[Rfam]
RNA sequence: AUCACUCCAAAGAUGAUACCAAUUCGGAUGUAAAAAACACAUUUUCCGAGAUGCGCUUUACAAACCUUGUGGAAAUUUCCGUUGCCUUCCUUCUGAUCUUUUUU
Number, nucleotide and partner (000 for none) at each position: 001a000002u000003c000004a102005c000006u000007c000008c000009a000010a000011a000012g000013a000014u000015g000016a000017u000018a000019c000020c000021a000022a000023u000024u000025c081026g080027g079028a078029u000030g000031u000032a000033a000034a000035a000036a000037a000038c000039a000040c000041a000042u000043u000044u000045u000046c000047c000048g000049a000050g000051a000052u000053g000054c000055g000056c000057u000058u000059u000060a000061c000062a000063a000064a000065c000066c000067u000068u000069g000070u000071g000072g000073a000074a000075a000076u000077u000078u028079c027080c026081g025082u000083u000084g000085c000086c000087u000088u000089c000090c000091u000092u000093c000094u000095g000096a000097u000098c000099u000100u000101u000102u004103u000104u000
The record is a 104-nucleotide sequence from Agaricus bisporus, which matches "Small nucleolar RNA Z13/snr52" in Rfam. Pairs were carried over by alignment from the consensus structure, which was predicted with PFOLD. Rfam links the family to the GO terms nucleolus and RNA processing. The family's RNA type in Rfam is C/D-box small nucleolar RNA. The family has 42 seed sequences and 1,203 matches in Rfam 15.1. The organism belongs to Agaricus bisporus, within Eukaryota.